[Rfam]
Eukaryotic large subunit ribosomal RNA: a 600-nucleotide part of an RNA from Dimargaris verticillata. NCBI's taxonomy places the organism under Eukaryota, Fungi, Dimargaritomycetes, Dimargaritaceae, Dimargaris.

RNA sequence: GAGUCAGCGGGGAAAGAAGACCCUGUUGAGUUUGACUCUAAUCUGGUGACGUGAAGGGGUGUAGAGGGUGUAGGAUAUGGGGGAGGCAACCUGUUGCCGGCAGUGAAAUACCCCAACCUCUAUCAUCCCUUUACUUAGGGGGCGCGGGGGGCCGUGUUGUUUGCACCACGUCGCAAGACAACCCCCUCUCCCAACCAUCGCCAGACGGGGAGUUUGGCUGGGGCGGCACAUCUGUUAAACCAUAACGCAGGUGUCCAAAGGGGAGCUCAGUGAGGACAGAAACCUCACGUAGAGUAAAAGGACAAAUGCUCCCUUGAUCCUGACGCCCCAGUGCUGCGUCGGACCAUGCAAGUGUGGCCUAUCGCUCCUUUGUGACCUUGAAUUGUAAGGCCAGAGGCGUCAGAAAAAUUACCACAGGGAUAACUGGCUUGUGGCAGCCAAGCGUUCAUAGCGACGUUGCUUUUUGAUCCUUCGAUGUCGGCUCUUCCUAUCAUUACGAAGCAGAAUUCGUAAAGUGUUGGAUUGUUCACCCACUAACAGGGAACGUGAGCUGGGUUUAGACCGUCGUGAGACAGGUUAGUUUUACCCUACUGACCCACC
Numbered sequence: 001g002a003g004u005c006a007g008c009g010g011g012g013a014a015a016g017a018a019g020a021c022c023c024u025g026u027u028g029a030g031u032u033u034g035a036c037u038c039u040a041a042u043c044u045g046g047u048g049a050c051g052u053g054a055a056g057g058g059g060u061g062u063a064g065a066g067g068g069u070g071u072a073g074g075a076u077a078u079g080g081g082g083g084a085g086g087c088a089a090c091c092u093g094u095u096g097c098c099g100g101c102a103g104u105g106a107a108a109u110a111c112c113c114c115a116a117c118c119u120c121u122a123u124c125a126u127c128c129c130u131u132u133a134c135u136u137a138g139g140g141g142g143c144g145c146g147g148g149g150g151g152c153c154g155u156g157u158u159g160u161u162u163g164c165a166c167c168a169c170g171u172c173g174c175a176a177g178a179c180a181a182c183c184c185c186c187u188c189u190c191c192c193a194a195c196c197a198u199c200g201c202c203a204g205a206c207g208g209g210g211a212g213u214u215u216g217g218c219u220g221g222g223g224c225g226g227c228a229c230a231u232c233u234g235u236u237a238a239a240c241c242a243u244a245a246c247g248c249a250g251g252u253g254u255c256c257a258a259a260g261g262g263g264a265g266c267u268c269a270g271u272g273a274g275g276a277c278a279g280a281a282a283c284c285u286c287a288c289g290u291a292g293a294g295u296a297a298a299a300g301g302a303c304a305a306a307u308g309c310u311c312c313c314u315u316g317a318u319c320c321u322g323a324c325g326c327c328c329c330a331g332u333g334c335u336g337c338g339u340c341g342g343a344c345c346a347u348g349c350a351a352g353u354g355u356g357g358c359c360u361a362u363c364g365c366u367c368c369u370u371u372g373u374g375a376c377c378u379u380g381a382a383u384u385g386u387a388a389g390g391c392c393a394g395a396g397g398c399g400u401c402a403g404a405a406a407a408a409u410u411a412c413c414a415c416a417g418g419g420a421u422a423a424c425u426g427g428c429u430u431g432u433g434g435c436a437g438c439c440a441a442g443c444g445u446u447c448a449u450a451g452c453g454a455c456g457u458u459g460c461u462u463u464u465u466g467a468u469c470c471u472u473c474g475a476u477g478u479c480g481g482c483u484c485u486u487c488c489u490a491u492c493a494u495u496a497c498g499a500a501g502c503a504g505a506a507u508u509c510g511u512a513a514a515g516u517g518u519u520g521g522a523u524u525g526u527u528c529a530c531c532c533a534c535u536a537a538c539a540g541g542g543a544a545c546g547u548g549a550g551c552u553g554g555g556u557u558u559a560g561a562c563c564g565u566c567g568u569g570a571g572a573c574a575g576g577u578u579a580g581u582u583u584u585a586c587c588c589u590a591c592u593g594a595c596c597c598a599c600c
Stems, first nucleotide, its partner, number of pairs: 001597001003595005010589003014584002022418004027414002029410005035213004042205007051134010061123007078115005085098004138192005148185004154166004170179002216229001217227003230252006255357002261313006267293002270288006294303002318343003322340005345354003368396005376390004427468001429466001431465001433461006442452002479554001480552004484546001485543005492517002495512006519533003523529001560578004564573003